[Rfam]
RNA: SAH (S-adenosyl-L-homocysteine) riboswitch aptamer
Organism: Methylibium sp. NZG
RNA sequence: CCGCCCAAGGAGCGUUGCGACGGCCGGUUCAUCUCCGUGCUGCCAGGCUUGGGCCCGGUGCCGAACGGGUUUGCGUUCGCACCGCUGCAACGGCGCUCACCCGAC
Numbered sequence: 001c002c003g004c005c006c007a008a009g010g011a012g013c014g015u016u017g018c019g020a021c022g023g024c025c026g027g028u029u030c031a032u033c034u035c036c037g038u039g040c041u042g043c044c045a046g047g048c049u050u051g052g053g054c055c056c057g058g059u060g061c062c063g064a065a066c067g068g069g070u071u072u073g074c075g076u077u078c079g080c081a082c083c084g085c086u087g088c089a090a091c092g093g094c095g096c097u098c099a100c101c102c103g104a105c
Base pairs, nucleotide, nucleotide: 003054004053005052006051007050008049021042022041023040024039